[Rfam]
RNA sequence: CACCAUGAAGACAAUUCUUAUCGUAGUACGAACGCGCGUGGGCAGGAUGGUGUAACCAUCCGGCAUAGCCACCCAUGCGCGACACACAGGCUCCCUCGGGGGCCUUUUUUAUUAUCCUCAA
Numbered sequence: 001c002a003c004c005a006u007g008a009a010g011a012c013a014a015u016u017c018u019u020a021u022c023g024u025a026g027u028a029c030g031a032a033c034g035c036g037c038g039u040g041g042g043c044a045g046g047a048u049g050g051u052g053u054a055a056c057c058a059u060c061c062g063g064c065a066u067a068g069c070c071a072c073c074c075a076u077g078c079g080c081g082a083c084a085c086a087c088a089g090g091c092u093c094c095c096u097c098g099g100g101g102g103c104c105u106u107u108u109u110u111a112u113u114a115u116c117c118u119c120a121a
Stems, first nucleotide, its partner, number of pairs: 030116002033081010045061006063069002086106001088105007
RNA: Rhizobiales sRNA Atu_C8